RNA sequence: GAAGUUUGGCAGACAAUCGCUGGCGGCUUAAGGCCGCGAGAGGAAAGUCCGGGCUCCAUAAGGCAGGAUGCUGGAUAACGUCCAGUCAGCGCGAGCUGAAGGAUAGUGCCACAGAAAUGGACCGCCGAUGGCGCGGAUGUACUUCCGCGAUCAGGCAAGGGUGGAACCGUGGUGUAAGAGACCACGAGGAGGUAUGGCGACAUACGUCCUGGUAAACCCCAUCUGGAGCAAGACCUAAUGGAACGCAGCCGUUCUUGAACGGCAGCCCUCGCCUGGGGCGCGUUCGGGUUGGUCGCUGGAGCGGAUCAGCAAUGGUUCGCGUAGAUAGAUGAUUGUCGCUUCAAUGGUGGGAGGGUGGUACCCGUUACGACCACUGGAAGCACAGAACCCGGCUUACGGCAAACUUCUCCA
Numbered sequence: 001g002a003a004g005u006u007u008g009g010c011a012g013a014c015a016a017u018c019g020c021u022g023g024c025g026g027c028u029u030a031a032g033g034c035c036g037c038g039a040g041a042g043g044a045a046a047g048u049c050c051g052g053g054c055u056c057c058a059u060a061a062g063g064c065a066g067g068a069u070g071c072u073g074g075a076u077a078a079c080g081u082c083c084a085g086u087c088a089g090c091g092c093g094a095g096c097u098g099a100a101g102g103a104u105a106g107u108g109c110c111a112c113a114g115a116a117a118u119g120g121a122c123c124g125c126c127g128a129u130g131g132c133g134c135g136g137a138u139g140u141a142c143u144u145c146c147g148c149g150a151u152c153a154g155g156c157a158a159g160g161g162u163g164g165a166a167c168c169g170u171g172g173u174g175u176a177a178g179a180g181a182c183c184a185c186g187a188g189g190a191g192g193u194a195u196g197g198c199g200a201c202a203u204a205c206g207u208c209c210u211g212g213u214a215a216a217c218c219c220c221a222u223c224u225g226g227a228g229c230a231a232g233a234c235c236u237a238a239u240g241g242a243a244c245g246c247a248g249c250c251g252u253u254c255u256u257g258a259a260c261g262g263c264a265g266c267c268c269u270c271g272c273c274u275g276g277g278g279c280g281c282g283u284u285c286g287g288g289u290u291g292g293u294c295g296c297u298g299g300a301g302c303g304g305a306u307c308a309g310c311a312a313u314g315g316u317u318c319g320c321g322u323a324g325a326u327a328g329a330u331g332a333u334u335g336u337c338g339c340u341u342c343a344a345u346g347g348u349g350g351g352a353g354g355g356u357g358g359u360a361c362c363c364g365u366u367a368c369g370a371c372c373a374c375u376g377g378a379a380g381c382a383c384a385g386a387a388c389c390c391g392g393c394u395u396a397c398g399g400c401a402a403a404c405u406u407c408u409c410c411a
Base pairs, nucleotide, nucleotide: 001407002406003405004404005403006402007401008400010398012337013336014335015334016333017332018331020040021039023037024036025035026034027033028032045395046394047393049392050391051390052389053388054228055227056226057225061274062273063272064271066224067223068222069221070220071085072084073083074082075081086100087098088097089096090095101219102218106217107216108213109212110211122160123159124156125155126154127152128151129150131148132147168186169185170184171183172182173181188209189208190207192205193204194203195202196201232294233293234292235291241285242284243283244282245281246280265279266278267277268276269275301320302319303318304317305316306315307314308313
RNA: Bacterial RNase P class A